The family of this 78-nucleotide sequence from Tetracentron sinense is "MIR473 microRNA precursor family". NCBI's taxonomy places the organism under Eukaryota, Viridiplantae, Streptophyta, Tracheophyta, Tetracentron. For this family Rfam cites "Novel and mechanical stress-responsive MicroRNAs in Populus trichocarpa that are absent from Arabidopsis" (Lu et al., Plant Cell, 2005). A search with the family's covariance model found it, with a score of 65 bits. The family has 6 seed sequences and 189 matches in Rfam 15.1. Its family is annotated with miRNA-mediated post-transcriptional gene silencing and RISC complex in the Gene Ontology.

[Rfam]
RNA sequence: AUUGCUCACUCUCCCUCAAAGACUUCUGCCAUUGCCUACAGGGGAUGGCUGAAGUCUUUUGGGGAGAGUGGACAAAAG
Numbered sequence: 001a002u003u004g005c006u007c008a009c010u011c012u013c014c015c016u017c018a019a020a021g022a023c024u025u026c027u028g029c030c031a032u033u034g035c036c037u038a039c040a041g042g043g044g045a046u047g048g049c050u051g052a053a054g055u056c057u058u059u060u061g062g063g064g065a066g067a068g069u070g071g072a073c074a075a076a077a078g
Stems, first nucleotide, its partner, number of pairs: 006071010018059009